[Rfam]
RNA sequence: CCAUGAAGAUGAACGCACACGCCCAUGCUGACAGCGCGGCCCGCCAGGCCUCGGGCAUGACGUCGCGUGCUCGCCGACCGGAAUCCUGCACCUAGCUGGGUACCCCGGACGUCUUCGCCUGUCUU
Numbered sequence: 001c002c003a004u005g006a007a008g009a010u011g012a013a014c015g016c017a018c019a020c021g022c023c024c025a026u027g028c029u030g031a032c033a034g035c036g037c038g039g040c041c042c043g044c045c046a047g048g049c050c051u052c053g054g055g056c057a058u059g060a061c062g063u064c065g066c067g068u069g070c071u072c073g074c075c076g077a078c079c080g081g082a083a084u085c086c087u088g089c090a091c092c093u094a095g096c097u098g099g100g101u102a103c104c105c106c107g108g109a110c111g112u113c114u115u116c117g118c119c120u121g122u123c124u125u
Stems, first nucleotide, its partner, number of pairs: 031122004035117002038113003041108002043079001047075003054071006080106002085100004089095001
This 125-nucleotide RNA sequence from Pseudoxanthomonas indica belongs to the Rfam family "Xanthomonadaceae sRNA Xoo5". It is annotated as a small RNA. A reference for the family is Liang et al. (2011), "Identification and functional characterization of small non-coding RNAs in Xanthomonas oryzae pathovar oryzae", BMC Genomics. It scores 60 bits against the family's covariance model.